[Rfam]
A member of the RNA family "RNase MRP" from Symbiodinium sp. CCMP2456, 246 nucleotides long. Lineage of the source: Eukaryota > Sar > Dinophyceae > Symbiodiniaceae > Symbiodinium. Its family is annotated with ribonuclease MRP complex, rRNA processing and ribonuclease MRP activity in the Gene Ontology. The literature on the family includes a 1993 paper in FASEB J by Schmitt et al., "Secondary structure of RNase MRP RNA as predicted by phylogenetic comparison". Rfam 15.1 lists 3,510 matches to the family in 2,315 species. It scores 88 bits against the family's covariance model. The family is grouped with related families in Rfam's "RNaseP clan". The family's RNA type in Rfam is ribozyme. Rfam describes the family as follows. RNase MRP is an enzymatically active ribonucleoprotein with two distinct roles in eukaryotes. In mitochondria it plays a direct role in the initiation of mitochondrial DNA replication.
RNA sequence: UGGAGGACGAGGAAGCGCAGCCACGCAGCCAACACACAGGGAGCUCAUCCCCCCAGCACGCCGCGGGGAAGUCCCCGUGCGUUCGGGCAGAGAGUGUCAUUGGGAGACCAACGGCCAGCGCAUGAAGCUUGCAGUGAAGCUUUAUGUGGAGUUUGCUUGGGAGCUGGUCACUUGCAGCAGCACAGUUAUGCCGUGAGCACUCGACAUGGGUGCCAACUGAACGGGGCUCAUUCUCCCCAUGCCUCC
Numbered sequence: 001u002g003g004a005g006g007a008c009g010a011g012g013a014a015g016c017g018c019a020g021c022c023a024c025g026c027a028g029c030c031a032a033c034a035c036a037c038a039g040g041g042a043g044c045u046c047a048u049c050c051c052c053c054c055a056g057c058a059c060g061c062c063g064c065g066g067g068g069a070a071g072u073c074c075c076c077g078u079g080c081g082u083u084c085g086g087g088c089a090g091a092g093a094g095u096g097u098c099a100u101u102g103g104g105a106g107a108c109c110a111a112c113g114g115c116c117a118g119c120g121c122a123u124g125a126a127g128c129u130u131g132c133a134g135u136g137a138a139g140c141u142u143u144a145u146g147u148g149g150a151g152u153u154u155g156c157u158u159g160g161g162a163g164c165u166g167g168u169c170a171c172u173u174g175c176a177g178c179a180g181c182a183c184a185g186u187u188a189u190g191c192c193g194u195g196a197g198c199a200c201u202c203g204a205c206a207u208g209g210g211u212g213c214c215a216a217c218u219g220a221a222c223g224g225g226g227c228u229c230a231u232u233c234u235c236c237c238c239a240u241g242c243c244u245c246c
Stems, first nucleotide, its partner, number of pairs: 002246005009238001011236003016195003020191002024065003028061002039053003043049001070228002073226004086098004100111004113169007121161001125158004131152002139147002197213006